[Rfam]
RNA sequence: AAUGCCUGUUGCCGAUCACUACCCCUCCCCUGGUGUGAUCACGGAAAUGCAGGUUCUCCCCAACCUGCCUUCCACCGGCCCCGCAGUCCCCCCUGGCUGCGGGGCUUUUUA
Numbered sequence: 001a002a003u004g005c006c007u008g009u010u011g012c013c014g015a016u017c018a019c020u021a022c023c024c025c026u027c028c029c030c031u032g033g034u035g036u037g038a039u040c041a042c043g044g045a046a047a048u049g050c051a052g053g054u055u056c057u058c059c060c061c062a063a064c065c066u067g068c069c070u071u072c073c074a075c076c077g078g079c080c081c082c083g084c085a086g087u088c089c090c091c092c093c094u095g096g097c098u099g100c101g102g103g104g105c106u107u108u109u110u111a
Stems, first nucleotide, its partner, number of pairs: 004012001006011001014040006021034003044073001046071002049068006077106008086097003
A member of the RNA family "Xanthomonadaceae sRNA sX13" from Thermomonas carbonis, 111 nucleotides long. The literature on the family includes a 2011 paper in Nucleic Acids Res by Schmidtke et al., "Genome-wide transcriptome analysis of the plant pathogen Xanthomonas identifies sRNAs with putative virulence functions". It scores 68 bits against the family's covariance model.